Shown here is a 127-nucleotide RNA from Sphingobium herbicidovorans, a member of the family "Manganese Mn2+ riboswitch aptamer (yybP-ykoY)". A search with the family's covariance model found it, with a score of 55 bits.
RNA sequence: CGCCCGGUCAUCUGGGGAGUAGCCAGCCAUUCGCGCGAUCGAAUGGGCCGUAUGUCAACAUAUUUGGCCGAGAGGUCAUGGCAUGCGGGAUGCGGGGAAGUCGGGCAAGCGCCCGGACCACCGCAUC
Numbered sequence: 001c002g003c004c005c006g007g008u009c010a011u012c013u014g015g016g017g018a019g020u021a022g023c024c025a026g027c028c029a030u031u032c033g034c035g036c037g038a039u040c041g042a043a044u045g046g047g048c049c050g051u052a053u054g055u056c057a058a059c060a061u062a063u064u065u066g067g068c069c070g071a072g073a074g075g076u077c078a079u080g081g082c083a084u085g086c087g088g089g090a091u092g093c094g095g096g097g098a099a100g101u102c103g104g105g106c107a108a109g110c111g112c113c114c115g116g117a118c119c120a121c122c123g124c125a126u127c
Base pairs, nucleotide, nucleotide: 027046028045029044030043031042048088049087050086051085052084053083054082055081056080057079065078066077067076068075069074089127090126091125092124093123094122095121

About this RNA
This RNA was originally discovered in E. coli during a large scale screen and was named SraF. The family was later found to exist upstream of related families of protein genes in many bacteria, including the the yybP and ykoK genes in B. subtilis. The specific functions of these proteins are unknown, but this structured RNA element may be involved in their genetic regulation as a riboswitch.